[Rfam]
RNA sequence: UAUUAGGUUGGUGCAAAAGUAAUUGUAGUAUUUGCCAUUAAACAUAAUGGCAAAUUCUGCAAUUACUUUUACACCAACCUAAUA
Numbered sequence: 001u002a003u004u005a006g007g008u009u010g011g012u013g014c015a016a017a018a019g020u021a022a023u024u025g026u027a028g029u030a031u032u033u034g035c036c037a038u039u040a041a042a043c044a045u046a047a048u049g050g051c052a053a054a055u056u057c058u059g060c061a062a063u064u065a066c067u068u069u070u071a072c073a074c075c076a077a078c079c080u081a082a083u084a
Stems, first nucleotide, its partner, number of pairs: 001084013015070014030055011
Background: Shown here is an 84-nucleotide RNA from Saimiri boliviensis, a member of the family "mir-548 microRNA precursor family". Its family is annotated with miRNA-mediated post-transcriptional gene silencing and RISC complex in the Gene Ontology. For this family Rfam cites "Ultra-high throughput sequencing-based small RNA discovery and discrete statistical biomarker analysis in a collection of cervical tumours and matched controls" (Witten et al., BMC Biol, 2010).